[Rfam]
RNA sequence: CCUUUUUGCUAUGUACGGAAUUCAAAGAUUCGAACCUGCAGCAGGUUCGGGUCGAACGCAGUGAGACAACGGAGCCGUUAACGGCGACGGCCCGGAGGGCGAGCGAAGCGAGUCAUCCUGCACGCCCCACCA
Numbered sequence: 001c002c003u004u005u006u007u008g009c010u011a012u013g014u015a016c017g018g019a020a021u022u023c024a025a026a027g028a029u030u031c032g033a034a035c036c037u038g039c040a041g042c043a044g045g046u047u048c049g050g051g052u053c054g055a056a057c058g059c060a061g062u063g064a065g066a067c068a069a070c071g072g073a074g075c076c077g078u079u080a081a082c083g084g085c086g087a088c089g090g091c092c093c094g095g096a097g098g099g100c101g102a103g104c105g106a107a108g109c110g111a112g113u114c115a116u117c118c119u120g121c122a123c124g125c126c127c128c129a130c131c132a
Stems, first nucleotide, its partner, number of pairs: 013123002016120003021115001031101002035098001046096004053063002070089002074085004
This 132-nucleotide RNA sequence from Citrobacter freundii belongs to the Rfam family "RtT RNA". Rfam 15.1 lists 651 matches to the family in 204 species. Rfam describes the family as follows. This family represents a bacterial cis-regulatory element known as RtT RNA. The exact function of RtT is unknown although it is thought that it may be involved in changing the cellular response in relation to amino acid starvation.